[Rfam]
RNA sequence: CAGCGCGUCAAAGUGGUGGUGAUUUGUCGUGGAUGAGGUCAUAUCACAGCCAGCUUUGAUGUGCUGUG
Numbered sequence: 001c002a003g004c005g006c007g008u009c010a011a012a013g014u015g016g017u018g019g020u021g022a023u024u025u026g027u028c029g030u031g032g033a034u035g036a037g038g039u040c041a042u043a044u045c046a047c048a049g050c051c052a053g054c055u056u057u058g059a060u061g062u063g064c065u066g067u068g
Stems, first nucleotide, its partner, number of pairs: 005062009014052004019047004025043003

mir-2 microRNA precursor family: a 68-nucleotide RNA sequence from Toxocara canis. On this family, see Lee and Ambros, Science 2001: "An extensive class of small RNAs in Caenorhabditis elegans". The family's consensus secondary structure was predicted with PFOLD. Rfam 15.1 lists 918 matches to the family in 280 species. Rfam links the family to the GO terms RISC complex and miRNA-mediated post-transcriptional gene silencing.